[Rfam]
Nucleotides: 098
Stems, first nucleotide, its partner, number of pairs: 008084003011049004017026003033042002054079004060073004
Number, partner (000 for none) and nucleotide at each position: 001000a002000g003000u004000u005000a006000u007000a008084g009083c010082u011049a012048g013047g014046g015000g016000u017026g018025c019024c020000c021000a022000a023000c024019g025018g026017c027000u028000g029000a030000g031000a032000g033042g034041a035000u036000a037000u038000u039000a040000c041034u042033c043000c044000a045000a046014c047013c048012c049011u050000c051000g052000a053000a054079c055078c056077u057076g058000a059000u060073g061072u062071g063070g064000u065000u066000a067000a068000u069000a070063c071062c072061a073060c074000c075000g076057u077056a078055g079054g080000a081000a082010a083009g084008c085000a086000u087000u088000c089000a090000u091000a092000u093000u094000u095000a096000a097000g098000c
A member of the RNA family "TPP riboswitch aptamer (THI element)" from Sporomusa acidovorans, 98 nucleotides long. A search with the family's covariance model found it, with a score of 62 bits.